[Rfam]
The record is a 91-nucleotide RNA from Myripristis murdjan, which matches "Small nucleolar SNORD12/SNORD106" in Rfam. Its Rfam clan is "SNORD12 clan". Pairs were carried over by alignment from the consensus structure, which was predicted with RNAalifold. It scores 44 bits against the family's covariance model. For this family Rfam cites "RNomics: an experimental approach that identifies 201 candidates for novel, small, non-messenger RNAs in mouse" (Huttenhofer et al., EMBO J, 2001). It is annotated as a C/D-box small nucleolar RNA. Lineage of the source: Eukaryota > Opisthokonta > Osteoglossocephalai > Holocentriformes > Myripristis. Its family is annotated with nucleolus and RNA processing in the Gene Ontology.
RNA sequence: GUGUGGUUUAUGAUGAACAAUCUUUCCCCGACAUAUCGACCAUGGUGAAAUAGAUGUGUAAAAAUAAGCCAAAUUGCUCUGAAAACCACAA
Numbered sequence: 001g002u003g004u005g006g007u008u009u010a011u012g013a014u015g016a017a018c019a020a021u022c023u024u025u026c027c028c029c030g031a032c033a034u035a036u037c038g039a040c041c042a043u044g045g046u047g048a049a050a051u052a053g054a055u056g057u058g059u060a061a062a063a064a065u066a067a068g069c070c071a072a073a074u075u076g077c078u079c080u081g082a083a084a085a086c087c088a089c090a091a
Base pairs, nucleotide, nucleotide: 002090003089004088005087006086007085008084009083